[Rfam]
Overview: Rfam assigns this 102-nucleotide sequence from Neobacillus cucumis to the family "Purine riboswitch aptamer". The family's consensus secondary structure is taken from published work.

RNA sequence: AGGGAAAUAAAAUAAUUGCAUCGUAUAAUCUUGGGAAUAUGGCCCAGAAGUUUCUACCGAGCCACCGUAAAUGGCUUGACUACGAGGCAGUGUUUAAUAAAG
Numbered sequence: 001a002g003g004g005a006a007a008u009a010a011a012a013u014a015a016u017u018g019c020a021u022c023g024u025a026u027a028a029u030c031u032u033g034g035g036a037a038u039a040u041g042g043c044c045c046a047g048a049a050g051u052u053u054c055u056a057c058c059g060a061g062c063c064a065c066c067g068u069a070a071a072u073g074g075c076u077u078g079a080c081u082a083c084g085a086g087g088c089a090g091u092g093u094u095u096a097a098u099a100a101a102g
Base pairs, nucleotide, nucleotide: 018088019087021085022084023083024082025081029049031047032046033045034044035043058078059077060076061075062074063073064072